[Rfam]
RNA sequence: UCAUUAAGCAUUGCACCCAGGGUCUGCUCUACCAGACAUUGUACCUGGAGCUUAUUUCUUUUCAUAAUUAAAAUCAAUU
Numbered sequence: 001u002c003a004u005u006a007a008g009c010a011u012u013g014c015a016c017c018c019a020g021g022g023u024c025u026g027c028u029c030u031a032c033c034a035g036a037c038a039u040u041g042u043a044c045c046u047g048g049a050g051c052u053u054a055u056u057u058c059u060u061u062u063c064a065u066a067a068u069u070a071a072a073a074u075c076a077a078u079u
Stems, first nucleotide, its partner, number of pairs: 005054005017048004022037005
Dot-bracket structure: ....(((((.......((((.(((((......))))).......)))).))))).........................

This 79-nucleotide sequence from Perca fluviatilis belongs to the Rfam family "U1A polyadenylation inhibition element (PIE)". About the family: This family represents the U1A polyadenylation inhibition element (PIE). PIE is a regulatory RNA which is responsible for the regulation of the length of the polyA tail of the U1A pre-mRNA. The PIE is located in the U1A mRNA 3' UTR. PIE adopts a U-shaped structure, with binding sites for a single U1A protein at each bend and when complexed with the two proteins it blocks activity of poly(A) polymerase (PAP), and inhibits its activity. It scores 70 bits against the family's covariance model. Lineage of the source: Eukaryota > Osteoglossocephalai > Ctenosquamata > Euacanthomorphacea > Perca.